[Rfam]
RNA sequence: GAAGCAGGCCAGACAGCCGCUGGCUAUCGCAAGAUAGCGGGAGGAAGGUCCGGACUCCAUAGAGCAGGGUGACGGCUAACGGCCGUACGCUGAAAGCCUACCCGGCGCAAGCCGGGGCGGUAUAAGGUGAGGAAUAGGGCCACAGAGACGAGCGUAUUAAGUUACGGUGAAACGCGGUAACCUCCACCCGGAGCAAUUCCAAAUAGGCACGCAUUGAGGCUGCUCGCGGAGCGUGCGGGUAGGAAGCUUGAGCCGUGGAGUAAUCCACGGCCUAGAGGAAUGGCUGUCAUAGCAGGGCAACCUGCCGUAACAGAAUCCGGCCUAUCGGCUUGCUUCACAC
Numbered sequence: 001g002a003a004g005c006a007g008g009c010c011a012g013a014c015a016g017c018c019g020c021u022g023g024c025u026a027u028c029g030c031a032a033g034a035u036a037g038c039g040g041g042a043g044g045a046a047g048g049u050c051c052g053g054a055c056u057c058c059a060u061a062g063a064g065c066a067g068g069g070u071g072a073c074g075g076c077u078a079a080c081g082g083c084c085g086u087a088c089g090c091u092g093a094a095a096g097c098c099u100a101c102c103c104g105g106c107g108c109a110a111g112c113c114g115g116g117g118c119g120g121u122a123u124a125a126g127g128u129g130a131g132g133a134a135u136a137g138g139g140c141c142a143c144a145g146a147g148a149c150g151a152g153c154g155u156a157u158u159a160a161g162u163u164a165c166g167g168u169g170a171a172a173c174g175c176g177g178u179a180a181c182c183u184c185c186a187c188c189c190g191g192a193g194c195a196a197u198u199c200c201a202a203a204u205a206g207g208c209a210c211g212c213a214u215u216g217a218g219g220c221u222g223c224u225c226g227c228g229g230a231g232c233g234u235g236c237g238g239g240u241a242g243g244a245a246g247c248u249u250g251a252g253c254c255g256u257g258g259a260g261u262a263a264u265c266c267a268c269g270g271c272c273u274a275g276a277g278g279a280a281u282g283g284c285u286g287u288c289a290u291a292g293c294a295g296g297g298c299a300a301c302c303u304g305c306c307g308u309a310a311c312a313g314a315a316u317c318c319g320g321c322c323u324a325u326c327g328g329c330u331u332g333c334u335u336c337a338c339a340c
Base pairs, nucleotide, nucleotide: 001336002335003334004333005332006331007330008329009328010327011325012288013287014286015285016284017283018282020041021040023038024037025036026035027034028033046323047322048321050320051319052318053317054316055193056192057191058190062225063224064223065222067189068188069187070186071185072086073085074084075083076082088129089128090127091126132184133183137182138181139178140177141176153166154165155164156163197245198244199243200242207236208235209234210233211232212231219227220226252271253270254269255268256267257266258265259264

The family of this 340-nucleotide RNA from Noviherbaspirillum autotrophicum is "Bacterial RNase P class A". A search with the family's covariance model found it, with a score of 223 bits. For this family Rfam cites "Ribonuclease P: unity and diversity in a tRNA processing ribozyme" (Frank and Pace, Annu Rev Biochem, 1998). NCBI's taxonomy places the organism under Bacteria, Pseudomonadati, Betaproteobacteria, Oxalobacteraceae, Noviherbaspirillum.